[Rfam]
RNA sequence: CCACUCUCAAAGUGGCUGUGAAAUGGUUCCUCCAGAAAUCGCCAUAUCACAGCCAGCUUUGAAGAGCGAUA
Numbered sequence: 001c002c003a004c005u006c007u008c009a010a011a012g013u014g015g016c017u018g019u020g021a022a023a024u025g026g027u028u029c030c031u032c033c034a035g036a037a038a039u040c041g042c043c044a045u046a047u048c049a050c051a052g053c054c055a056g057c058u059u060u061g062a063a064g065a066g067c068g069a070u071a
Base pairs, nucleotide, nucleotide: 005065006064007062008061009060010059011058012057013055014054015053016052017051018050019049020048021047024046025045
mir-2 microRNA precursor family: a 71-nucleotide RNA sequence from Culex quinquefasciatus.
Rfam links the family to the GO terms miRNA-mediated post-transcriptional gene silencing and RISC complex.
A reference for the family is Lee and Ambros (2001), "An extensive class of small RNAs in Caenorhabditis elegans", Science.